The record is a 194-nucleotide sequence from Pseudomonas fluorescens, which matches "RgsA sRNA" in Rfam. Rfam describes the family as follows. This small RNA (sRNA) was computationally identified in the genome of the opportunistic pathogen Pseudomonas aeruginosa and its expression verified by northern blot analysis. P16 sRNA appears to be conserved across several Pseudomonas species and Azotobacter vinelandii. The organism belongs to Pseudomonas fluorescens, within Bacteria. On this family, see Livny et al., Nucleic Acids Res 2006: "Identification of 17 Pseudomonas aeruginosa sRNAs and prediction of sRNA-encoding genes in 10 diverse pathogens using the bioinformatic tool sRNAPredict2". Its family is annotated with sRNA-mediated gene silencing, response to hydrogen peroxide and response to oxidative stress in the Gene Ontology. The family's RNA type in Rfam is small RNA.
RNA sequence: CAAGCGAAGCGCCUGUAUUCCAAAUAUGUUUAAGAAACAGUCGGGACAAACUGGACUCAGCGCAAUAGUGAUCAAUACUUGAACUGUCGGCGUGACAUCUCCCCCAAGUGCUGCGCCGAUGAAGGUACCAAAGGACCGCGUACCUUUGUUUUACUCCUAAUGGUCUUAACCCGGAUUCACCCCCCAGAACCCGG
Numbered sequence: 001c002a003a004g005c006g007a008a009g010c011g012c013c014u015g016u017a018u019u020c021c022a023a024a025u026a027u028g029u030u031u032a033a034g035a036a037a038c039a040g041u042c043g044g045g046a047c048a049a050a051c052u053g054g055a056c057u058c059a060g061c062g063c064a065a066u067a068g069u070g071a072u073c074a075a076u077a078c079u080u081g082a083a084c085u086g087u088c089g090g091c092g093u094g095a096c097a098u099c100u101c102c103c104c105c106a107a108g109u110g111c112u113g114c115g116c117c118g119a120u121g122a123a124g125g126u127a128c129c130a131a132a133g134g135a136c137c138g139c140g141u142a143c144c145u146u147u148g149u150u151u152u153a154c155u156c157c158u159a160a161u162g163g164u165c166u167u168a169a170c171c172c173g174g175a176u177u178c179a180c181c182c183c184c185c186a187g188a189a190c191c192c193g194g
Stems, first nucleotide, its partner, number of pairs: 040164004086120004091115002094112001096110003121147008129138001171194004176189003